[Rfam]
RNA sequence: GAAGUUGGCCGGAUCGUCGCGAGGGUGCUUGCCACCUUCGAGGAAAGUCCGGGCUCCACAGGGCGGGAUGCCAGGUAACGCCUGGGCGGCGCGAGCCGACGGAAAGUGCAACAGAGAACAGACCGCCGAACGGUGUCGCAAGACAUGCGUGGUAAGGGUGAAACGGUGCGGUAAGAGCGCACCGCGGACCUGGCAACAGGGACGGCACGGCAAACCCCAUCCGGAGCAAGACCAAAUAGGAAGGCGUUGGCGCGGCCCGCGUUGCCUUCGGGUAGGUUGCUUGAGCCCUGCGGUGAUGCAGGGCCUAGAGGAAUGACGGUCCUCGACAGAACCCGGCUUACAGGCCGACUUCGCCC
Numbered sequence: 001g002a003a004g005u006u007g008g009c010c011g012g013a014u015c016g017u018c019g020c021g022a023g024g025g026u027g028c029u030u031g032c033c034a035c036c037u038u039c040g041a042g043g044a045a046a047g048u049c050c051g052g053g054c055u056c057c058a059c060a061g062g063g064c065g066g067g068a069u070g071c072c073a074g075g076u077a078a079c080g081c082c083u084g085g086g087c088g089g090c091g092c093g094a095g096c097c098g099a100c101g102g103a104a105a106g107u108g109c110a111a112c113a114g115a116g117a118a119c120a121g122a123c124c125g126c127c128g129a130a131c132g133g134u135g136u137c138g139c140a141a142g143a144c145a146u147g148c149g150u151g152g153u154a155a156g157g158g159u160g161a162a163a164c165g166g167u168g169c170g171g172u173a174a175g176a177g178c179g180c181a182c183c184g185c186g187g188a189c190c191u192g193g194c195a196a197c198a199g200g201g202a203c204g205g206c207a208c209g210g211c212a213a214a215c216c217c218c219a220u221c222c223g224g225a226g227c228a229a230g231a232c233c234a235a236a237u238a239g240g241a242a243g244g245c246g247u248u249g250g251c252g253c254g255g256c257c258c259g260c261g262u263u264g265c266c267u268u269c270g271g272g273u274a275g276g277u278u279g280c281u282u283g284a285g286c287c288c289u290g291c292g293g294u295g296a297u298g299c300a301g302g303g304c305c306u307a308g309a310g311g312a313a314u315g316a317c318g319g320u321c322c323u324c325g326a327c328a329g330a331a332c333c334c335g336g337c338u339u340a341c342a343g344g345c346c347g348a349c350u351u352c353g354c355c356c
Base pairs, nucleotide, nucleotide: 001352002351003350004349005348006347007346008345009344010343011341012321013320014319015318016317017316018315020040021039022038023037024036025035026034027033045339046338047337049336050335051334052333053332054226055225056224057223061258062257063256064255066222067221068220069219070218071085072084073083074082075081086100087098088097089096090095101217102216106215107214108211109210123157124156125153126152127151128150131147132146165183166182167181168180169179170178184206185204186203189200190199191198192197230278231277232276233275240269241268242267243266244265245264249263250262251261252260253259285304286303287302288301289300290299291298292297
RNA: Bacterial RNase P class A